RNA sequence: AAGAGUUACAGCUCUUUCAGAAUUUGUCUAGCAGGAUUUCCAGUUUUUACUAGAAAACCUCC
Number, nucleotide and partner (000 for none) at each position: 001a000002a000003g000004a000005g000006u000007u000008a000009c000010a000011g000012c000013u000014c000015u000016u000017u000018c000019a000020g000021a000022a000023u000024u000025u000026g000027u000028c000029u000030a000031g000032c000033a000034g059035g058036a000037u056038u055039u054040c053041c000042a051043g050044u049045u000046u000047u000048u000049a044050c043051u042052a000053g040054a039055a038056a037057a000058c035059c034060u000061c000062c000
RNA: U7 small nuclear RNA